[Rfam]
RNA sequence: ACUUGGCGGGUGGCAUCCGUUAGUCUCUGCAUCUGGAGAAGUCAUUGAUUAAUGGAGUUAAUUGUGAGAUAGGAUAGAGUAUAUAGGCUCUGUCCGCCUGAAGUCUAAUGUUGGCAAUUGCAUCUUAGCGUAAGCUUCUAGGUGUAAUGGCUAUUCAAGAUCUGGGCAUAGCGUGAGGCUGGAAACAGAGCAACGAAAACCGGACGCAUUAAUUCAGUCAGGGGACUGCAGAGCUGUACGUCCUAGGUAGCAAAUAACUCAUUAAUCAUUUU
Numbered sequence: 001a002c003u004u005g006g007c008g009g010g011u012g013g014c015a016u017c018c019g020u021u022a023g024u025c026u027c028u029g030c031a032u033c034u035g036g037a038g039a040a041g042u043c044a045u046u047g048a049u050u051a052a053u054g055g056a057g058u059u060a061a062u063u064g065u066g067a068g069a070u071a072g073g074a075u076a077g078a079g080u081a082u083a084u085a086g087g088c089u090c091u092g093u094c095c096g097c098c099u100g101a102a103g104u105c106u107a108a109u110g111u112u113g114g115c116a117a118u119u120g121c122a123u124c125u126u127a128g129c130g131u132a133a134g135c136u137u138c139u140a141g142g143u144g145u146a147a148u149g150g151c152u153a154u155u156c157a158a159g160a161u162c163u164g165g166g167c168a169u170a171g172c173g174u175g176a177g178g179c180u181g182g183a184a185a186c187a188g189a190g191c192a193a194c195g196a197a198a199a200c201c202g203g204a205c206g207c208a209u210u211a212a213u214u215c216a217g218u219c220a221g222g223g224g225a226c227u228g229c230a231g232a233g234c235u236g237u238a239c240g241u242c243c244u245a246g247g248u249a250g251c252a253a254a255u256a257a258c259u260c261a262u263u264a265a266u267c268a269u270u271u272u
Base pairs, nucleotide, nucleotide: 001042002041003040004022005021006020007019008018009017010016011015024039025038026037044270046268047267048266049265050264051263052262053261055260056259057258058257059256060255062253063252064251065250067248070245071244072243073242074241079239080238081237082236086235087234088233089232090231091230092229093228094224095223097222098221099220100219101218103215106211107210108209109208110207111206112153113152114151115150117148118147119146120145121144122143123142124141125140127136128135129134155159161204162203163202164201165200172195173194174193179188180187181186
Shown here is a 272-nucleotide RNA from Smittium culicis, a member of the family "Metazoan signal recognition particle RNA". Rfam describes the family as follows. The signal recognition particle (SRP) is a universally conserved ribonucleoprotein. Rfam classes the family as a non-coding RNA gene. NCBI's taxonomy places the organism under Eukaryota, Kickxellomycota, Harpellomycetes, Harpellales, Smittium.